[Rfam]
A member of the RNA family "ASpks TB sRNA", 69 nucleotides long.
RNA sequence: CUUGACCGAGCCGAGCAGCAGCGGCUGCUCGCGGUCCUGUCCGUAGGUCGCGAGCAGGGCCUGGGCCUC
Dot-bracket structure: .............(((.......))).(((.(....((..(.(....).)..))....)...)))....
Numbered sequence: 001c002u003u004g005a006c007c008g009a010g011c012c013g014a015g016c017a018g019c020a021g022c023g024g025c026u027g028c029u030c031g032c033g034g035u036c037c038u039g040u041c042c043g044u045a046g047g048u049c050g051c052g053a054g055c056a057g058g059g060c061c062u063g064g065g066c067c068u069c
Stems, first nucleotide, its partner, number of pairs: 014026003028065003032059001037054002041050001043048001